[Rfam]
Nucleotides: 144
Base pairs, nucleotide, nucleotide: 028057029056030055031054032053033052034045035044036043101129102128103127104126105125106124107123110120
Number, partner (000 for none) and nucleotide at each position: 001000g002000u003000g004000a005000a006000a007000u008000a009000u010000a011000c012000a013000u014000u015000u016000g017000u018000a019000c020000c021000g022000a023000a024000g025000a026000c027000a028057g029056u030055a031054g032053g033052a034045g035044u036043g037000g038000c039000a040000u041000g042000u043036c044035a045034c046000u047000u048000a049000a050000u051000a052033u053032c054031c055030u056029a057028c058000c059000g060000a061000g062000g063000a064000c065000a066000a067000g068000c069000a070000a071000a072000u073000u074000c075000a076000g077000a078000u079000u080000c081000u082000u083000c084000u085000u086000a087000g088000a089000u090000g091000a092000u093000g094000a095000c096000u097000u098000u099000c100000u101129g102128c103127c104126u105125c106124u107123g108000u109000g110120u111000c112000u113000a114000u115000c116000c117000g118000u119000a120110g121000a122000u123107c124106a125105g126104a127103g128102g129101c130000u131000u132000u133000u134000c135000u136000u137000u138000u139000g140000u141000c142000g143000g144000u
The family of this 144-nucleotide sequence from Psychrobacillus glaciei is "Ribosomal protein L10 leader". Its family is annotated with regulation of gene expression in the Gene Ontology. The base pairs follow the family's consensus structure, which was predicted with CMfinder. Rfam classes the family as a cis-regulatory leader.